[Rfam]
RNA sequence: UGCUACCAUAUUUGUAAGUCGCUCUGGAUAAGAGCGUCUGCUAAAUGACUUAAA
Numbered sequence: 001u002g003c004u005a006c007c008a009u010a011u012u013u014g015u016a017a018g019u020c021g022c023u024c025u026g027g028a029u030a031a032g033a034g035c036g037u038c039u040g041c042u043a044a045a046u047g048a049c050u051u052a053a054a
Base pairs, nucleotide, nucleotide: 013043014041015040016039020036021035022034023033024032025031
A member of the RNA family "UnaL2 LINE 3' element" from Salmo trutta, 54 nucleotides long. The base pairs follow the family's consensus structure, which is taken from published work.